Annotation:
A member of the RNA family "MIR2593 microRNA precursor family" from Trifolium pratense, 115 nucleotides long. Taxonomically the source falls in Trifolium (Eukaryota, Streptophyta, Pentapetalae, rosids).
RNA sequence: AUGUAAGCAAAAGUAGCUUUUUUAGAUUCAUUGGAAAAUUGAUGUAUUUAGUCUAAAAUAUAGACCAAAUACAUCACUUUUUUAAUGAACCUAAAAAUGCUACUUUUGCUUACAU
Numbered sequence: 001a002u003g004u005a006a007g008c009a010a011a012a013g014u015a016g017c018u019u020u021u022u023u024a025g026a027u028u029c030a031u032u033g034g035a036a037a038a039u040u041g042a043u044g045u046a047u048u049u050a051g052u053c054u055a056a057a058a059u060a061u062a063g064a065c066c067a068a069a070u071a072c073a074u075c076a077c078u079u080u081u082u083u084a085a086u087g088a089a090c091c092u093a094a095a096a097a098u099g100c101u102a103c104u105u106u107u108g109c110u111u112a113c114a115u
Stems, first nucleotide, its partner, number of pairs: 002114006009107005015101003019097007027089012040076005049067001051065002